[Rfam]
RNA sequence: UUCCCUCAUUUAGCGCCAUGGCCUUUUACAUAGAGAUAGGAAAGGCUGACGAGGUAAAGGGUGAUCGAAAAUUCGGCGGAUGCUCUUUCGUAUCGCCUCCGGUGCGUGAUAUACCGGCAAAUAUGCGGGUAACUGCAAAACAAAUACGGUAUAACGGAGGCAA
Numbered sequence: 001u002u003c004c005c006u007c008a009u010u011u012a013g014c015g016c017c018a019u020g021g022c023c024u025u026u027u028a029c030a031u032a033g034a035g036a037u038a039g040g041a042a043a044g045g046c047u048g049a050c051g052a053g054g055u056a057a058a059g060g061g062u063g064a065u066c067g068a069a070a071a072u073u074c075g076g077c078g079g080a081u082g083c084u085c086u087u088u089c090g091u092a093u094c095g096c097c098u099c100c101g102g103u104g105c106g107u108g109a110u111a112u113a114c115c116g117g118c119a120a121a122u123a124u125g126c127g128g129g130u131a132a133c134u135g136c137a138a139a140a141c142a143a144a145u146a147c148g149g150u151a152u153a154a155c156g157g158a159g160g161c162a163a
Stems, first nucleotide, its partner, number of pairs: 020047008029039001056088005065076004089106006110153007124137005
Dot-bracket structure: ...................((((((((.(.........)))))))))........(((((....((((....)))).......)))))((((((......))))))...(((((((.......(((((....))))).........)))))))..........
RNA: glmS glucosamine-6-phosphate activated ribozyme aptamer
Organism: Parablautia intestinalis